[Rfam]
This 95-nucleotide RNA sequence from Streptococcus pseudopneumoniae belongs to the Rfam family "Streptococcus sRNA SpF44". By type it is a small RNA. The source organism's lineage runs through Bacteria, Bacillota, Lactobacillales, Streptococcaceae and Streptococcus pseudopneumoniae. The literature on the family includes a 2012 paper in PLoS Pathog by Mann et al., "Control of virulence by small RNAs in Streptococcus pneumoniae".
RNA sequence: AUGUCAUCCCGUGAGGUGACGAAGACGCAGAAAUACUUGAAACUCUCUAAAAUCUAGAUUUUAGAGAAGUCUUACUCUGAGGGCCUAUUGCUGUA
Numbered sequence: 001a002u003g004u005c006a007u008c009c010c011g012u013g014a015g016g017u018g019a020c021g022a023a024g025a026c027g028c029a030g031a032a033a034u035a036c037u038u039g040a041a042a043c044u045c046u047c048u049a050a051a052a053u054c055u056a057g058a059u060u061u062u063a064g065a066g067a068a069g070u071c072u073u074a075c076u077c078u079g080a081g082g083g084c085c086u087a088u089u090g091c092u093g094u095a
Stems, first nucleotide, its partner, number of pairs: 002021005009016002027094004032089004044067010069084005
Background:
The base pairs follow the family's consensus structure, which was predicted with mfold.